[Rfam]
RNA sequence: GCCCAGACUCGCACGUGCCUGUGGGUGUUCGCCAUUUUUAAAAUGAAAUGACAGGAUCAAGCGGUCAGUAAGGUACCUGGCACUAACAACCGAUCUAGUUUUCUAUCGCUUGAUAGAAUAAGGACAUCCUGAAGCAACGACGGUGUGGGCCUUU
Numbered sequence: 001g002c003c004c005a006g007a008c009u010c011g012c013a014c015g016u017g018c019c020u021g022u023g024g025g026u027g028u029u030c031g032c033c034a035u036u037u038u039u040a041a042a043a044u045g046a047a048a049u050g051a052c053a054g055g056a057u058c059a060a061g062c063g064g065u066c067a068g069u070a071a072g073g074u075a076c077c078u079g080g081c082a083c084u085a086a087c088a089a090c091c092g093a094u095c096u097a098g099u100u101u102u103c104u105a106u107c108g109c110u111u112g113a114u115a116g117a118a119u120a121a122g123g124a125c126a127u128c129c130u131g132a133a134g135c136a137a138c139g140a141c142g143g144u145g146u147g148g149g150c151c152u153u154u
Stems, first nucleotide, its partner, number of pairs: 001150004009140003016136003023129008031069002077098004099121002102117006
A member of the RNA family "Alphaproteobacterial sRNA ar45" from Candidatus Tokpelaia sp. JSC085, 154 nucleotides long.
The literature on the family includes a 2012 paper in RNA Biol by del Val et al., "A survey of sRNA families in alpha-proteobacteria".
The pairing is the family consensus, mapped onto this sequence.
Rfam classes the family as a small RNA.